[Rfam]
RNA sequence: ACUCUAUGAUGAAUGAAACCUAAGACAAGCAUAUGUCUGAUCUUCUAUGCUGACUUGAGUAUGAUUCUGAGAGU
Numbered sequence: 001a002c003u004c005u006a007u008g009a010u011g012a013a014u015g016a017a018a019c020c021u022a023a024g025a026c027a028a029g030c031a032u033a034u035g036u037c038u039g040a041u042c043u044u045c046u047a048u049g050c051u052g053a054c055u056u057g058a059g060u061a062u063g064a065u066u067c068u069g070a071g072a073g074u
Base pairs, nucleotide, nucleotide: 001074002073003072004071
The record is a 74-nucleotide RNA sequence from Lingula anatina, which matches "Small nucleolar RNA SNORD27" in Rfam. Rfam links the family to the GO terms RNA processing and nucleolus. A search with the family's covariance model found it, with a score of 52 bits. The pairing is the family consensus, mapped onto this sequence. The organism belongs to Lingula, within Eukaryota. It is annotated as a C/D-box small nucleolar RNA. For this family Rfam cites "A small nucleolar RNA requirement for site-specific ribose methylation of rRNA in Xenopus" (Tycowski et al., Proc Natl Acad Sci U S A, 1996).